[Rfam]
RNA sequence: GGAAAAGCUUUAUAGGGUUCCGCAGUUAACAGCUGGUCUGCACCGAGAUAAAGCGCGCAGGAUACUGCGUUCACGGAAGGACAAAAGCCUGGGAGAU
Numbered sequence: 001g002g003a004a005a006a007g008c009u010u011u012a013u014a015g016g017g018u019u020c021c022g023c024a025g026u027u028a029a030c031a032g033c034u035g036g037u038c039u040g041c042a043c044c045g046a047g048a049u050a051a052a053g054c055g056c057g058c059a060g061g062a063u064a065c066u067g068c069g070u071u072c073a074c075g076g077a078a079g080g081a082c083a084a085a086a087g088c089c090u091g092g093g094a095g096a097u
Base pairs, nucleotide, nucleotide: 007054008053009052010051011050012049015044016043021040022038023035024034025033026032027031055070056069057068058067059066060065072092074095078090079089080088